[Rfam]
RNA sequence: UGUUGUCAGUGAUGAGACCACGGAUCUUGCGUCAGGCAUGGCGCCCGACUAACAUGAGGAUACAUUUCCAUGCUGCCUUCCUUCUGAGACUACG
Dot-bracket structure: (((.(....................................................................................).)))
Numbered sequence: 001u002g003u004u005g006u007c008a009g010u011g012a013u014g015a016g017a018c019c020a021c022g023g024a025u026c027u028u029g030c031g032u033c034a035g036g037c038a039u040g041g042c043g044c045c046c047g048a049c050u051a052a053c054a055u056g057a058g059g060a061u062a063c064a065u066u067u068c069c070a071u072g073c074u075g076c077c078u079u080c081c082u083u084c085u086g087a088g089a090c091u092a093c094g
Stems, first nucleotide, its partner, number of pairs: 001094003005090001